[Rfam]
RNA sequence: UUUAACACGUUGAAGAGGAUCAGUAAUUAAAGGCGAUCAUCUACAGAGAGCUGCUAGGAGCUGAGAGGCAGCGAUGAUCCUUUAAUGAAGCUCACCUCGGAGUGCGACUUCGAACAAUCGGGCACAGCCUGCUUUAGUAGAUGUUGCCGGGUGGUUUUUCACUACACCCGUUAUCAAAAUGAGACGAUUUGAUCGUCCAUGAGGUAGCAUUUGUAAAAAUGCUACGAAUGAGGGUGGUACCGUGAAAAGAGAAAUCUUUUUGCCCCUUUG
Numbered sequence: 001u002u003u004a005a006c007a008c009g010u011u012g013a014a015g016a017g018g019a020u021c022a023g024u025a026a027u028u029a030a031a032g033g034c035g036a037u038c039a040u041c042u043a044c045a046g047a048g049a050g051c052u053g054c055u056a057g058g059a060g061c062u063g064a065g066a067g068g069c070a071g072c073g074a075u076g077a078u079c080c081u082u083u084a085a086u087g088a089a090g091c092u093c094a095c096c097u098c099g100g101a102g103u104g105c106g107a108c109u110u111c112g113a114a115c116a117a118u119c120g121g122g123c124a125c126a127g128c129c130u131g132c133u134u135u136a137g138u139a140g141a142u143g144u145u146g147c148c149g150g151g152u153g154g155u156u157u158u159u160c161a162c163u164a165c166a167c168c169c170g171u172u173a174u175c176a177a178a179a180u181g182a183g184a185c186g187a188u189u190u191g192a193u194c195g196u197c198c199a200u201g202a203g204g205u206a207g208c209a210u211u212u213g214u215a216a217a218a219a220u221g222c223u224a225c226g227a228a229u230g231a232g233g234g235u236g237g238u239a240c241c242g243u244g245a246a247a248a249g250a251g252a253a254a255u256c257u258u259u260u261u262g263c264c265c266c267u268u269u270g
Base pairs, nucleotide, nucleotide: 007103008102015098016097017096018095026086027085028084029083030082031081039075040074041073050072051071052070053069054068055067105146106145107144108143110141111140148170149169150168151167152166153165204225205224206223207222208221209220210219231267232266233265234264242263243262244261245260246259247258248257249256250255

T-box leader: a 270-nucleotide RNA from Halalkalibacterium halodurans. It is annotated as a cis-regulatory leader.